[Rfam]
Shown here is a 141-nucleotide RNA sequence from Zizania palustris, a member of the family "small nucleolar RNA snoR137". It is annotated as an H/ACA-box small nucleolar RNA. Taxonomically the source falls in Zizania (Eukaryota, Poales, Oryzoideae, Zizaniinae). The literature on the family includes a 2009 paper in Nucleic Acids Res by Chen and Wu, "Mining small RNA sequencing data: a new approach to identify small nucleolar RNAs in Arabidopsis". The family has 4 seed sequences and 808 matches in Rfam 15.1.

RNA sequence: GUUGCUUCACGACUGGAAGAAUGACCUGAUGAUACAAGUUUGGUCCUUCUGUAGAGAGAAGCAUAGAUUUAUUUUGUUCAGAAUUAAACAGCACGGCGCUUUGUUUAACCGCGUCAGUGUUACCUGUCUCCUGGCACAUUU
Numbered sequence: 001g002u003u004g005c006u007u008c009a010c011g012a013c014u015g016g017a018a019g020a021a022u023g024a025c026c027u028g029a030u031g032a033u034a035c036a037a038g039u040u041u042g043g044u045c046c047u048u049c050u051g052u053a054g055a056g057a058g059a060a061g062c063a064u065a066g067a068u069u070u071a072u073u074u075u076g077u078u079c080a081g082a083a084u085u086a087a088a089c090a091g092c093a094c095g096g097c098g099c100u101u102u103g104u105u106u107a108a109c110c111g112c113g114u115c116a117g118u119g120u121u122a123c124c125u126g127u128c129u130c131c132u133g134g135c136a137c138a139u140u141u
Stems, first nucleotide, its partner, number of pairs: 003063006018048002023045004076135001078134004083129001090121003094117001095115004